[Rfam]
RNA sequence: CUUCACGGAGCCCAGCAGCAGCGGCUGUCGCGGCUCGCGGUCCUUGCCGUAGGUGGCGAGCAGGGCCUGCGCCUC
Numbered sequence: 001c002u003u004c005a006c007g008g009a010g011c012c013c014a015g016c017a018g019c020a021g022c023g024g025c026u027g028u029c030g031c032g033g034c035u036c037g038c039g040g041u042c043c044u045u046g047c048c049g050u051a052g053g054u055g056g057c058g059a060g061c062a063g064g065g066c067c068u069g070c071g072c073c074u075c
Base pairs, nucleotide, nucleotide: 014026015025016024031071032070038065043060044059045058047056048055049054
Rfam assigns this 75-nucleotide RNA from Streptomyces griseoviridis to the family "ASpks TB sRNA". The base pairs follow the family's consensus structure, which is taken from published work. A search with the family's covariance model found it, with a score of 70 bits. The source organism's lineage runs through Bacteria, Bacillati, Kitasatosporales, Streptomycetaceae and Streptomyces.